[Rfam]
RNA sequence: ACAGCCUGAAAGCCGCGACGCUCAUCCCAUACGGAACAUCGCUUUGCGAUCUUCAUUCUCGUGGGCGGGCUAAGGUCUGAGUAUCCCUUCUCUCAGCUCCAGCCGAGCUUCGUCUUAACGGACUUCGCGACGUACCAGCAACACCGAGACCAUGCUCUUCCCGAUGAACUGGGAGUAUGGAGUCAGCCCUGGCACCGACCCCCGGAGGGCACAUGUUACCGAUGGAACUCGUCGUAUGGGUUGGGUGCGUACUUCGAUCCACGUCUCUUGGUUUGUGUAAAUCUUGAUUUUGGUCGACGGCCGACUCUGUCCAUGGCCGCCUGCCUACCUGCUCCCGCGCUAUGCACUCGGGGUGCAGGGAGAACCGUCUCCUCCUCUGCCUGCGCGUGUGUUGUCUCGUCCGGGCAGGACCAUGGCUGGGACGCCGGUCUAGUUCUGCGUGGGCGAAGGCAGAUAUGCGAUGAGUAGGGGCAUGCGCGAGGCAGCUCUGGGCUUGCAGGCGCGGAUGGACGUACGUACCCUUGAGUUCACUUCGCGGCUCGUGGAGCUGCUGACUGUUCGUCAGUUGGCGGGUCCGCGAAACUCGAUUCAGACUACUCUCGGGCUGU
Numbered sequence: 001a002c003a004g005c006c007u008g009a010a011a012g013c014c015g016c017g018a019c020g021c022u023c024a025u026c027c028c029a030u031a032c033g034g035a036a037c038a039u040c041g042c043u044u045u046g047c048g049a050u051c052u053u054c055a056u057u058c059u060c061g062u063g064g065g066c067g068g069g070c071u072a073a074g075g076u077c078u079g080a081g082u083a084u085c086c087c088u089u090c091u092c093u094c095a096g097c098u099c100c101a102g103c104c105g106a107g108c109u110u111c112g113u114c115u116u117a118a119c120g121g122a123c124u125u126c127g128c129g130a131c132g133u134a135c136c137a138g139c140a141a142c143a144c145c146g147a148g149a150c151c152a153u154g155c156u157c158u159u160c161c162c163g164a165u166g167a168a169c170u171g172g173g174a175g176u177a178u179g180g181a182g183u184c185a186g187c188c189c190u191g192g193c194a195c196c197g198a199c200c201c202c203c204g205g206a207g208g209g210c211a212c213a214u215g216u217u218a219c220c221g222a223u224g225g226a227a228c229u230c231g232u233c234g235u236a237u238g239g240g241u242u243g244g245g246u247g248c249g250u251a252c253u254u255c256g257a258u259c260c261a262c263g264u265c266u267c268u269u270g271g272u273u274u275g276u277g278u279a280a281a282u283c284u285u286g287a288u289u290u291u292g293g294u295c296g297a298c299g300g301c302c303g304a305c306u307c308u309g310u311c312c313a314u315g316g317c318c319g320c321c322u323g324c325c326u327a328c329c330u331g332c333u334c335c336c337g338c339g340c341u342a343u344g345c346a347c348u349c350g351g352g353g354u355g356c357a358g359g360g361a362g363a364a365c366c367g368u369c370u371c372c373u374c375c376u377c378u379g380c381c382u383g384c385g386c387g388u389g390u391g392u393u394g395u396c397u398c399g400u401c402c403g404g405g406c407a408g409g410a411c412c413a414u415g416g417c418u419g420g421g422a423c424g425c426c427g428g429u430c431u432a433g434u435u436c437u438g439c440g441u442g443g444g445c446g447a448a449g450g451c452a453g454a455u456a457u458g459c460g461a462u463g464a465g466u467a468g469g470g471g472c473a474u475g476c477g478c479g480a481g482g483c484a485g486c487u488c489u490g491g492g493c494u495u496g497c498a499g500g501c502g503c504g505g506a507u508g509g510a511c512g513u514a515c516g517u518a519c520c521c522u523u524g525a526g527u528u529c530a531c532u533u534c535g536c537g538g539c540u541c542g543u544g545g546a547g548c549u550g551c552u553g554a555c556u557g558u559u560c561g562u563c564a565g566u567u568g569g570c571g572g573g574u575c576c577g578c579g580a581a582a583c584u585c586g587a588u589u590c591a592g593a594c595u596a597c598u599c600u601c602g603g604g605c606u607g608u
Stems, first nucleotide, its partner, number of pairs: 001608004007602003012539007020066005034051002037048001077592005085245003095109005112123004127235006148220001540580007
RNA: Nuclear RNase P
Organism: Hericium alpestre